[Rfam]
RNA sequence: CUCUGGUUCAGCAAAUGAAGCAGGGCAAAGGAG
Numbered sequence: 001c002u003c004u005g006g007u008u009c010a011g012c013a014a015a016u017g018a019a020g021c022a023g024g025g026c027a028a029a030g031g032a033g
Base pairs, nucleotide, nucleotide: 001025002024003023004022005021007019008018009017

About this RNA:
Rfam assigns this 33-nucleotide RNA from Enterococcus mundtii to the family "L31-Firmicutes ribosomal protein leader". It is one of the family's seed sequences. On this family, see Eckert and Weinberg, BMC Microbiol 2020: "Discovery of 20 novel ribosomal leader candidates in bacteria and archaea". NCBI's taxonomy places the organism under Bacteria, Bacilli, Lactobacillales, Enterococcus, Enterococcus mundtii. By type it is a cis-regulatory leader.